Early nodulin 40: a 264-nucleotide RNA.
[Rfam]
RNA sequence: AUGCAGUGGGAUGAAGCAAUCCAUGGGUCUUAGGAAAAGAGAGGCAAUUAGUUGGAGUGAAUUAAGGACUUUUAAAUGCCCUUCCUCCAAAUACAAUUUCAAGUUUGUUCAUACUUUGCCAAUUUCUCUGCUAGAAUUCCAGAAAAUGCAGCAAAAAAGGAAAGUGUUUAUGGAUUGAUAAUCACACUAAUAGCAAAGGAUGUUGGCAAAAGCAUGGCGAACCGGCAAGUCACGAAACGGCAAUGGACUCCGUUUUGGAGUCUU
Numbered sequence: 001a002u003g004c005a006g007u008g009g010g011a012u013g014a015a016g017c018a019a020u021c022c023a024u025g026g027g028u029c030u031u032a033g034g035a036a037a038a039g040a041g042a043g044g045c046a047a048u049u050a051g052u053u054g055g056a057g058u059g060a061a062u063u064a065a066g067g068a069c070u071u072u073u074a075a076a077u078g079c080c081c082u083u084c085c086u087c088c089a090a091a092u093a094c095a096a097u098u099u100c101a102a103g104u105u106u107g108u109u110c111a112u113a114c115u116u117u118g119c120c121a122a123u124u125u126c127u128c129u130g131c132u133a134g135a136a137u138u139c140c141a142g143a144a145a146a147u148g149c150a151g152c153a154a155a156a157a158a159g160g161a162a163a164g165u166g167u168u169u170a171u172g173g174a175u176u177g178a179u180a181a182u183c184a185c186a187c188u189a190a191u192a193g194c195a196a197a198g199g200a201u202g203u204u205g206g207c208a209a210a211a212g213c214a215u216g217g218c219g220a221a222c223c224g225g226c227a228a229g230u231c232a233c234g235a236a237a238c239g240g241c242a243a244u245g246g247a248c249u250c251c252g253u254u255u256u257g258g259a260g261u262c263u264u
Stems, first nucleotide, its partner, number of pairs: 054088003103222006123211002246262005
The family has 35 seed sequences and 341 matches in Rfam 15.1.